[Rfam]
RNA sequence: UAAAAGGCAUUGAUAAGGACGAGUAGAAAUAGUUUCGCUACUACAGAGAGCUCUGGUUGGUGAGAUGGAGCAUAGAAGAUUAUUUUGAAUACACCUUUGAGCUGUAGUCUGAAAAUAUGUACAAUAUUAGUAGGAUGUUCCGGAAUCCCGCACACGUUAUAGUGCUAGAGUAUCAUGUAUUCAGUGUUUUAAUAUGAUUAUAUUGUACUUGAAAAGGUUGAUAUGGUAACAUAUUGAUAAAAUACGAGGUGGUACCACGUGAGUAUAUACUCCCGUCCUCUGC
Numbered sequence: 001u002a003a004a005a006g007g008c009a010u011u012g013a014u015a016a017g018g019a020c021g022a023g024u025a026g027a028a029a030u031a032g033u034u035u036c037g038c039u040a041c042u043a044c045a046g047a048g049a050g051c052u053c054u055g056g057u058u059g060g061u062g063a064g065a066u067g068g069a070g071c072a073u074a075g076a077a078g079a080u081u082a083u084u085u086u087g088a089a090u091a092c093a094c095c096u097u098u099g100a101g102c103u104g105u106a107g108u109c110u111g112a113a114a115a116u117a118u119g120u121a122c123a124a125u126a127u128u129a130g131u132a133g134g135a136u137g138u139u140c141c142g143g144a145a146u147c148c149c150g151c152a153c154a155c156g157u158u159a160u161a162g163u164g165c166u167a168g169a170g171u172a173u174c175a176u177g178u179a180u181u182c183a184g185u186g187u188u189u190u191a192a193u194a195u196g197a198u199u200a201u202a203u204u205g206u207a208c209u210u211g212a213a214a215a216g217g218u219u220g221a222u223a224u225g226g227u228a229a230c231a232u233a234u235u236g237a238u239a240a241a242a243u244a245c246g247a248g249g250u251g252g253u254a255c256c257a258c259g260u261g262a263g264u265a266u267a268u269a270c271u272c273c274c275g276u277c278c279u280c281u282g283c
Stems, first nucleotide, its partner, number of pairs: 007102002015097004026086006039074002050071006106138001107136004141156002187239001189237008246280004257276003261272004